The family of this 102-nucleotide RNA from Effusibacillus dendaii is "Purine riboswitch aptamer". About the family: Riboswitches are metabolite binding domains within certain messenger RNAs that serve as precision sensors for their corresponding targets.
RNA sequence: CAACUUAUAUAGGUUACAACUCGUAUAAUGUCGAUAAUAGGGUUCGACAGUUUCUACCGAGUCACCAUAAAUGACUGGACUACGAGGCGUGCGUUUUUUUAU
Numbered sequence: 001c002a003a004c005u006u007a008u009a010u011a012g013g014u015u016a017c018a019a020c021u022c023g024u025a026u027a028a029u030g031u032c033g034a035u036a037a038u039a040g041g042g043u044u045c046g047a048c049a050g051u052u053u054c055u056a057c058c059g060a061g062u063c064a065c066c067a068u069a070a071a072u073g074a075c076u077g078g079a080c081u082a083c084g085a086g087g088c089g090u091g092c093g094u095u096u097u098u099u100u101a102u
Stems, first nucleotide, its partner, number of pairs: 020086006029049006058078001060076005
Lineage of the source: Bacteria > Bacillati > Bacillota > Caryophanales > Effusibacillus. The base pairs follow the family's consensus structure, which is taken from published work.